The family of this 75-nucleotide RNA from Crocuta crocuta is "Small nucleolar RNA SNORD81".
The family is grouped with related families in Rfam's "SNORD26 clan".
The family's consensus secondary structure was predicted with PFOLD.
Taxonomically the source falls in Crocuta (Eukaryota, Bilateria, Euteleostomi, Eutheria).
[Rfam]
RNA sequence: UAGAAUACAUGAUGAUCUCCAACUUGAACUCUCUCACUGAUCACUUUUGAUGAUUAUAAAAGAUCUGAUAUUCUG
Dot-bracket structure: (((((((.............................................................)))))))

By type it is a C/D-box small nucleolar RNA. Gene Ontology terms of the family: RNA processing and nucleolus. On this family, see Smith and Steitz, Mol Cell Biol 1998: "Classification of gas5 as a multi-small-nucleolar-RNA (snoRNA) host gene and a member of the 5'-terminal oligopyrimidine gene family reveals common features of snoRNA host genes". The match comes from Rfam's covariance-model search (85 bits).